[Rfam]
RNA sequence: CCAAAGGCUCUUCUAAGAGCCACCCACUUAAGCUGGAAAAGGGCUG
Numbered sequence: 001c002c003a004a005a006g007g008c009u010c011u012u013c014u015a016a017g018a019g020c021c022a023c024c025c026a027c028u029u030a031a032g033c034u035g036g037a038a039a040a041g042g043g044c045u046g
Base pairs, nucleotide, nucleotide: 006021007020008019009018010017011016

Histone 3' UTR stem-loop: a 46-nucleotide sequence from Balaeniceps rex. The organism belongs to Balaeniceps, within Eukaryota. The family's consensus secondary structure is taken from published work.